Background:
Rfam assigns this 58-nucleotide RNA sequence from Anolis carolinensis to the family "Small Nucleolar RNA SNORD64". Rfam links the family to the GO terms RNA processing and nucleolus. Rfam classes the family as a C/D-box small nucleolar RNA. Clan: SNORD74 clan. Pairs were carried over by alignment from the consensus structure, which was predicted with RNAalifold.

[Rfam]
RNA sequence: GGCACACUGGAGCUCAGUUUGAGCAUGAUGAAAUGAAGCUCAAAUAGAACUUUCUGCC
Numbered sequence: 001g002g003c004a005c006a007c008u009g010g011a012g013c014u015c016a017g018u019u020u021g022a023g024c025a026u027g028a029u030g031a032a033a034u035g036a037a038g039c040u041c042a043a044a045u046a047g048a049a050c051u052u053u054c055u056g057c058c
Stems, first nucleotide, its partner, number of pairs: 001058004010052003018046001020042005